Group II catalytic intron D1-D4-3: a 173-nucleotide RNA.
RNA sequence: UCCACCGUGAGGUGGAAUCUGAAGGAAGCCGAAGGCAAAGCACUGGCCUGACGAACAGAAACCGUAUACGAGGCGGCCGUCGCGGGUGAGAAGGCCCAUAUCUUCAAAGCCCGGUACUUGCACGGAAGCGGCGGACGUAAAUGCGGCGGGCAUAAGUGUGAAGGUCGCGCGUC
Numbered sequence: 001u002c003c004a005c006c007g008u009g010a011g012g013u014g015g016a017a018u019c020u021g022a023a024g025g026a027a028g029c030c031g032a033a034g035g036c037a038a039a040g041c042a043c044u045g046g047c048c049u050g051a052c053g054a055a056c057a058g059a060a061a062c063c064g065u066a067u068a069c070g071a072g073g074c075g076g077c078c079g080u081c082g083c084g085g086g087u088g089a090g091a092a093g094g095c096c097c098a099u100a101u102c103u104u105c106a107a108a109g110c111c112c113g114g115u116a117c118u119u120g121c122a123c124g125g126a127a128g129c130g131g132c133g134g135a136c137g138u139a140a141a142u143g144c145g146g147c148g149g150g151c152a153u154a155a156g157u158g159u160g161a162a163g164g165u166c167g168c169g170c171g172u173c
Stems, first nucleotide, its partner, number of pairs: 001016006028173001030171002035165002040159005046151005062146006073138003077134007084112004090105004